[Rfam]
Source information: Bacterial RNase P class A: a 369-nucleotide RNA from Chitinophagaceae bacterium IBVUCB1. Lineage of the source: Bacteria > Bacteroidota > Chitinophagia > Chitinophagales > Chitinophagaceae. The match comes from Rfam's covariance-model search (258 bits).
RNA sequence: ACUACAAGCCGGGUUAUCGCUUUUGCACAGGCAAGAGAGGAAAGUCCGGACAGUAUAGAGCAGCGCACCACCUAACGGGUGGGGGCUUGCGAAAGCAGGCUACAGACAGUGCCACAGAAAAUAACCGCCUUUAGCAAUAAAGGUAAGGGUGAAAAUGUAGGGUAAGAGCCUACGCAUGGUAUUGGUAACAAUAUGAUGGGGUAAACCUUGCGCACUGAAAUGCCGAAUAGGCGUACAUUUGAGGGCUGCUCGUCCGAUAGUACGCGGGUUGGCAGCUACAGGUGAUGUGUGAGCAGCAUCGCAGAUAAAUGAUAGCCGUCCCGGGACCAUACGGGAUUACAGAAUCCGGCUUAUAGGUUUGUGGUUGUU
Numbered sequence: 001a002c003u004a005c006a007a008g009c010c011g012g013g014u015u016a017u018c019g020c021u022u023u024u025g026c027a028c029a030g031g032c033a034a035g036a037g038a039g040g041a042a043a044g045u046c047c048g049g050a051c052a053g054u055a056u057a058g059a060g061c062a063g064c065g066c067a068c069c070a071c072c073u074a075a076c077g078g079g080u081g082g083g084g085g086c087u088u089g090c091g092a093a094a095g096c097a098g099g100c101u102a103c104a105g106a107c108a109g110u111g112c113c114a115c116a117g118a119a120a121a122u123a124a125c126c127g128c129c130u131u132u133a134g135c136a137a138u139a140a141a142g143g144u145a146a147g148g149g150u151g152a153a154a155a156u157g158u159a160g161g162g163u164a165a166g167a168g169c170c171u172a173c174g175c176a177u178g179g180u181a182u183u184g185g186u187a188a189c190a191a192u193a194u195g196a197u198g199g200g201g202u203a204a205a206c207c208u209u210g211c212g213c214a215c216u217g218a219a220a221u222g223c224c225g226a227a228u229a230g231g232c233g234u235a236c237a238u239u240u241g242a243g244g245g246c247u248g249c250u251c252g253u254c255c256g257a258u259a260g261u262a263c264g265c266g267g268g269u270u271g272g273c274a275g276c277u278a279c280a281g282g283u284g285a286u287g288u289g290u291g292a293g294c295a296g297c298a299u300c301g302c303a304g305a306u307a308a309a310u311g312a313u314a315g316c317c318g319u320c321c322c323g324g325g326a327c328c329a330u331a332c333g334g335g336a337u338u339a340c341a342g343a344a345u346c347c348g349g350c351u352u353a354u355a356g357g358u359u360u361g362u363g364g365u366u367g368u369u
Stems, first nucleotide, its partner, number of pairs: 001365010011354001012317007020037007042352003046349005051217004058251004063213005068082005083103001084101007104208002109206002111202003125148002127144007156174006176197002179194006221274004231265006243255004281300004286295003